The record is a 54-nucleotide RNA sequence from Anguilla anguilla, which matches "UnaL2 LINE 3' element" in Rfam.
The eel long interspersed element (LINE) UnaL2 and its partner short interspersed element (SINE) share a conserved 3' tail containing a stem-loop that is critical for their retrotransposition. Presumably, the first step of retrotransposition is the recognition of their 3' tails by UnaL2-encoded reverse transcriptase. The solution structure of a 17-nucleotide RNA derived from the 3' tail of UnaL2 was determined by NMR.
RNA sequence: AAAAAAACAUUGUGUAAGUCACUCUGGAUAAGAGCAUCUGCUAAAUGCCUGUAA
Numbered sequence: 001a002a003a004a005a006a007a008c009a010u011u012g013u014g015u016a017a018g019u020c021a022c023u024c025u026g027g028a029u030a031a032g033a034g035c036a037u038c039u040g041c042u043a044a045a046u047g048c049c050u051g052u053a054a
Stems, first nucleotide, its partner, number of pairs: 013043001014041003022034004

The family's consensus secondary structure is taken from published work.